[Rfam]
RNA sequence: AACCACCACAUAGACCCGCUUACGAACCAUCACACACGGAGAUUUCACCGUCUCUCUCAUUGGUUUGGGGAAAGUCCUCGGACACAGGGCAGAAAGUGCCGCCUGUAAACGGUUCAGCCCUCGGACGCGCAGCCCGCUGCAAAGACUACGGAGCCCCUUUGGGGGCUCCUGGAGCCUUCAUGGUCGCUGCGUCCGAGUCGGUCCGUUGGUCAUAGCACAGUUAUGCGGGUGUGGUCGCCCCAACUCUAAAGGCUGCGCCGGACGUUCUCGAAAGAGACCGUUUGCGUGGCUGGGGGUGAUCAUAACUCAACGGGGCUCACUCGUGCGGUGGU
Numbered sequence: 001a002a003c004c005a006c007c008a009c010a011u012a013g014a015c016c017c018g019c020u021u022a023c024g025a026a027c028c029a030u031c032a033c034a035c036a037c038g039g040a041g042a043u044u045u046c047a048c049c050g051u052c053u054c055u056c057u058c059a060u061u062g063g064u065u066u067g068g069g070g071a072a073a074g075u076c077c078u079c080g081g082a083c084a085c086a087g088g089g090c091a092g093a094a095a096g097u098g099c100c101g102c103c104u105g106u107a108a109a110c111g112g113u114u115c116a117g118c119c120c121u122c123g124g125a126c127g128c129g130c131a132g133c134c135c136g137c138u139g140c141a142a143a144g145a146c147u148a149c150g151g152a153g154c155c156c157c158u159u160u161g162g163g164g165g166c167u168c169c170u171g172g173a174g175c176c177u178u179c180a181u182g183g184u185c186g187c188u189g190c191g192u193c194c195g196a197g198u199c200g201g202u203c204c205g206u207u208g209g210u211c212a213u214a215g216c217a218c219a220g221u222u223a224u225g226c227g228g229g230u231g232u233g234g235u236c237g238c239c240c241c242a243a244c245u246c247u248a249a250a251g252g253c254u255g256c257g258c259c260g261g262a263c264g265u266u267c268u269c270g271a272a273a274g275a276g277a278c279c280g281u282u283u284g285c286g287u288g289g290c291u292g293g294g295g296g297u298g299a300u301c302a303u304a305a306c307u308c309a310a311c312g313g314g315g316c317u318c319a320c321u322c323g324u325g326c327g328g329u330g331g332u
Base pairs, nucleotide, nucleotide: 002332003331004330005329006328007327009325010324011323014230015229016228017227018226019225023067024066025065026064027063028062036051037050038049039048041046073317074316076315077314078313079312088100089099090098091097103112104111105110115200117198121196122195123194124193125192126191130189131188132187133186139184140183165175166174167173168172232302233301234300235299236298237297238296239295240294241293

The family of this 332-nucleotide sequence from Jimgerdemannia flammicorona is "RNase MRP". The source organism's lineage runs through Eukaryota, Opisthokonta, Fungi, Endogonales and Jimgerdemannia. Rfam's curators write: RNase MRP is an enzymatically active ribonucleoprotein with two distinct roles in eukaryotes. In mitochondria it plays a direct role in the initiation of mitochondrial DNA replication. By type it is a ribozyme.